RNA: UnaL2 LINE 3' element
RNA sequence: AACGCACCAAUUUGUGAGUCGCUCUGGCUAAGAGCGUCUACUAAAUGACGUUAA
Numbered sequence: 001a002a003c004g005c006a007c008c009a010a011u012u013u014g015u016g017a018g019u020c021g022c023u024c025u026g027g028c029u030a031a032g033a034g035c036g037u038c039u040a041c042u043a044a045a046u047g048a049c050g051u052u053a054a
Stems, first nucleotide, its partner, number of pairs: 013043001014041003020036006